[Rfam]
RNA: mraW RNA
RNA sequence: GGCUUCGGGUGGAUCGAGGCCCCGGUCCGGAACGACCCUGGCGUACUUCCCCAACGCCAGGUGCGUAGCCGGACCGGGACCCCGCUUCACCCGGCAAGACAA
Numbered sequence: 001g002g003c004u005u006c007g008g009g010u011g012g013a014u015c016g017a018g019g020c021c022c023c024g025g026u027c028c029g030g031a032a033c034g035a036c037c038c039u040g041g042c043g044u045a046c047u048u049c050c051c052c053a054a055c056g057c058c059a060g061g062u063g064c065g066u067a068g069c070c071g072g073a074c075c076g077g078g079a080c081c082c083c084g085c086u087u088c089a090c091c092c093g094g095c096a097a098g099a100c101a102a
Stems, first nucleotide, its partner, number of pairs: 010089004015084002018081002021078010032066003037061008